A member of the RNA family "Fluoride riboswitch aptamer (crcB RNA motif)" from Enterococcus dispar, 73 nucleotides long. Taxonomically the source falls in Enterococcus dispar (Bacteria, Bacillati, Lactobacillales, Enterococcaceae).
RNA sequence: GAAUAUUCAGGGAAUGAUGAUCUCCCAUGGACUUAUCCAAAACCGCUAUUAAGCUAAUGACUUCUACAAGUUU
Numbered sequence: 001g002a003a004u005a006u007u008c009a010g011g012g013a014a015u016g017a018u019g020a021u022c023u024c025c026c027a028u029g030g031a032c033u034u035a036u037c038c039a040a041a042a043c044c045g046c047u048a049u050u051a052a053g054c055u056a057a058u059g060a061c062u063u064c065u066a067c068a069a070g071u072u073u
Stems, first nucleotide, its partner, number of pairs: 010026004016064002019061001021059001045054003